[Rfam]
RNA sequence: UUCUUAUCAAGAGAGACGGAGGGAUUGGCCCGAAGAUGUCUCAGCAACCAGCCGAAUAAAGGUGUGGUGCUAAUUCCAAUAGACGUUCUACGUCUUGAAGAUAAGAA
Numbered sequence: 001u002u003c004u005u006a007u008c009a010a011g012a013g014a015g016a017c018g019g020a021g022g023g024a025u026u027g028g029c030c031c032g033a034a035g036a037u038g039u040c041u042c043a044g045c046a047a048c049c050a051g052c053c054g055a056a057u058a059a060a061g062g063u064g065u066g067g068u069g070c071u072a073a074u075u076c077c078a079a080u081a082g083a084c085g086u087u088c089u090a091c092g093u094c095u096u097g098a099a100g101a102u103a104a105g106a107a
Stems, first nucleotide, its partner, number of pairs: 001107008013042005021031003025079004043071004048067002051063003075099001081095005
Dot-bracket structure: ((((((((....(((((...(((.[[[[)))......)))))((((.((.(((.......)))..))))))...(]]]].(((((.....)))))...)))))))))

SAM riboswitch aptamer (S box leader): a 107-nucleotide sequence from Psychrobacillus sp. FJAT-21963. The family's consensus secondary structure is taken from published work. Lineage of the source: Bacteria > Bacillati > Bacilli > Bacillaceae > Psychrobacillus.